Source information
Rfam assigns this 59-nucleotide RNA from Herbiconiux oxytropis to the family "msiK RNA". Rfam 15.1 lists 1,374 matches to the family in 1,364 species. Rfam classes the family as a cis-regulatory element. Taxonomically the source falls in Herbiconiux (Bacteria, Actinomycetota, Micrococcales, Microbacteriaceae). The base pairs follow the family's consensus structure, which is taken from published work.
[Rfam]
RNA sequence: GAAUCAAAUCCAUCACUACGGAUCGUCCGGCACGUACCUGCCGGUGAAGGAGCACUUGA
Numbered sequence: 001g002a003a004u005c006a007a008a009u010c011c012a013u014c015a016c017u018a019c020g021g022a023u024c025g026u027c028c029g030g031c032a033c034g035u036a037c038c039u040g041c042c043g044g045u046g047a048a049g050g051a052g053c054a055c056u057u058g059a
Stems, first nucleotide, its partner, number of pairs: 009051003013047003027044006